[Rfam]
RNA sequence: CGCCCGGGCCCGGAUCCCGUGGGGGGAAUCCGCUCCGGGGCACAGGAGGGCGCCCUGUACUCCGGC
Numbered sequence: 001c002g003c004c005c006g007g008g009c010c011c012g013g014a015u016c017c018c019g020u021g022g023g024g025g026g027a028a029u030c031c032g033c034u035c036c037g038g039g040g041c042a043c044a045g046g047a048g049g050g051c052g053c054c055c056u057g058u059a060c061u062c063c064g065g066c
Stems, first nucleotide, its partner, number of pairs: 001064002003039005011032005016026003045054002

Shown here is a 66-nucleotide RNA sequence from Streptomyces sp. UH6, a member of the family "Streptomyces RNA 2736". The family's RNA type in Rfam is small RNA. The organism belongs to Streptomyces, within Bacteria. It scores 63 bits against the family's covariance model. The base pairs follow the family's consensus structure. About the family: Identified by deep sequencing of transcriptome at the end of exponential growth phase. Appears smaller on northern blot than sequencing transcript. This indicates processing step. Streptomyces specific.